[Rfam]
RNA: Fluoride riboswitch aptamer (crcB RNA motif)
RNA sequence: AUUGAAUCCGGUGAUGGAGCUCACCGUGAACUGCCGGAAUGAACUGGCUAAUGGCCCCUACUGUUCU
Numbered sequence: 001a002u003u004g005a006a007u008c009c010g011g012u013g014a015u016g017g018a019g020c021u022c023a024c025c026g027u028g029a030a031c032u033g034c035c036g037g038a039a040u041g042a043a044c045u046g047g048c049u050a051a052u053g054g055c056c057c058c059u060a061c062u063g064u065u066c067u
Base pairs, nucleotide, nucleotide: 010025011024012023013022016058017057019055020054021053033048034047035046036045